[Rfam]
This 114-nucleotide sequence from Aminobacter sp. J15 belongs to the Rfam family "Alphaproteobacterial ar14". Lineage of the source: Bacteria > Pseudomonadati > Alphaproteobacteria > Phyllobacteriaceae > Aminobacter. For this family Rfam cites "A survey of sRNA families in alpha-proteobacteria" (del Val et al., RNA Biol, 2012). The family's RNA type in Rfam is small RNA. Rfam's curators write: Smr14C2 was renamed NfeR1 (Nodule Formation Efficiency RNA) highly expressed in salt stress and during the symbiotic interaction on legume roots. The pairing is the family consensus, mapped onto this sequence.
RNA sequence: AGUUCCCUGCGAGACGGAUCCUCCUCCCUCCCGAUCGCAGGAUAGAAGGCCGGCUCCUCCUCCCGCCGGUCUCUCACAGAGAAAGGCCGGGUCCUCCUCCCCCCGGCCUUUUUC
Numbered sequence: 001a002g003u004u005c006c007c008u009g010c011g012a013g014a015c016g017g018a019u020c021c022u023c024c025u026c027c028c029u030c031c032c033g034a035u036c037g038c039a040g041g042a043u044a045g046a047a048g049g050c051c052g053g054c055u056c057c058u059c060c061u062c063c064c065g066c067c068g069g070u071c072u073c074u075c076a077c078a079g080a081g082a083a084a085g086g087c088c089g090g091g092u093c094c095u096c097c098u099c100c101c102c103c104c105g106g107c108c109u110u111u112u113u114c
Base pairs, nucleotide, nucleotide: 007040008039009038011036012035015033016032017031045075046074047072048071049070050069051068052067053066084109085108086107087106088105089104090103091102